[Rfam]
RNA sequence: GCUGGUCCUCGGUAGUGGCUUCCGGACUGACAGUCCGUGAGCCUCGAUCGAUGACCGCC
Numbered sequence: 001g002c003u004g005g006u007c008c009u010c011g012g013u014a015g016u017g018g019c020u021u022c023c024g025g026a027c028u029g030a031c032a033g034u035c036c037g038u039g040a041g042c043c044u045c046g047a048u049c050g051a052u053g054a055c056c057g058c059c
Base pairs, nucleotide, nucleotide: 001059003057004056005055006054007053009051010050011049012048013047017043018042019041020040021039023037024036025035026034027033028032
Dot-bracket structure: (.(((((.(((((...(((((.((((((...)))))).)))))...))))).))))).)